[Rfam]
RNA sequence: AUCUUAUCAAGAGAGGUGGAGGGACUGGCCCUAUGAAGCCCAGCAACCGGUACUUUAUUUUUGUAUAAAAUUAACACUAUAAGUGUAUAUUUUUAUAGAAAUAGUACAACGGUGCUAAAUCCUGCGGCCUUUUUGACUGAUAGAUAAGAA
Numbered sequence: 001a002u003c004u005u006a007u008c009a010a011g012a013g014a015g016g017u018g019g020a021g022g023g024a025c026u027g028g029c030c031c032u033a034u035g036a037a038g039c040c041c042a043g044c045a046a047c048c049g050g051u052a053c054u055u056u057a058u059u060u061u062u063g064u065a066u067a068a069a070a071u072u073a074a075c076a077c078u079a080u081a082a083g084u085g086u087a088u089a090u091u092u093u094u095a096u097a098g099a100a101a102u103a104g105u106a107c108a109a110c111g112g113u114g115c116u117a118a119a120u121c122c123u124g125c126g127g128c129c130u131u132u133u134u135g136a137c138u139g140a141u142a143g144a145u146a147a148g149a150a
Base pairs, nucleotide, nucleotide: 002149003148004147005146006145007144008143013041015040016039017038021031022030023029025124027122028121042116043115044114045113047112048111050107051106052105053104054103120142125139126138127137129135